[Rfam]
RNA sequence: GGAUGUUCUGAAGACCUGCUCGCUAGGCCACGCACGGAGGACGCUGGUUCCUCACGGGCCCCGCGCCCGCCUAGGGGAAAGUCCCCGGACCGCCGGCAGAGAGUGCCGGGCGUUGUCCACGCCCCCGCCUGCCCCCAUCUCACGCACCAACCGCCGAGACGCCCCUGGGCCGAGCGGAUGAGCGCGGGGCGGGCUCUCGUCACGGACACAGAGACGCAGGUAGUGCGCAGGCGCACCAACAAAACGGGGCUCACUCUCAGGCCAUC
Numbered sequence: 001g002g003a004u005g006u007u008c009u010g011a012a013g014a015c016c017u018g019c020u021c022g023c024u025a026g027g028c029c030a031c032g033c034a035c036g037g038a039g040g041a042c043g044c045u046g047g048u049u050c051c052u053c054a055c056g057g058g059c060c061c062c063g064c065g066c067c068c069g070c071c072u073a074g075g076g077g078a079a080a081g082u083c084c085c086c087g088g089a090c091c092g093c094c095g096g097c098a099g100a101g102a103g104u105g106c107c108g109g110g111c112g113u114u115g116u117c118c119a120c121g122c123c124c125c126c127g128c129c130u131g132c133c134c135c136c137a138u139c140u141c142a143c144g145c146a147c148c149a150a151c152c153g154c155c156g157a158g159a160c161g162c163c164c165c166u167g168g169g170c171c172g173a174g175c176g177g178a179u180g181a182g183c184g185c186g187g188g189g190c191g192g193g194c195u196c197u198c199g200u201c202a203c204g205g206a207c208a209c210a211g212a213g214a215c216g217c218a219g220g221u222a223g224u225g226c227g228c229a230g231g232c233g234c235a236c237c238a239a240c241a242a243a244a245c246g247g248g249g250c251u252c253a254c255u256c257u258c259a260g261g262c263c264a265u266c
Stems, first nucleotide, its partner, number of pairs: 002266004007261005014221006023074006037053005080251002083249004095107004108124006126193001128191001132189003136186001138184001139182004151177004161170003223236005
Dot-bracket structure: .((((.(((((..((((((...((((((........(((((.......)))))...............)))))).....[[.[[[[........((((.....))))((((((.....)))))).(.(...(((.(.(((((........((((......(((....)))...)))).)))).).)))).).)......................)))))).(((((....))))).........]]]]]].....))))).))))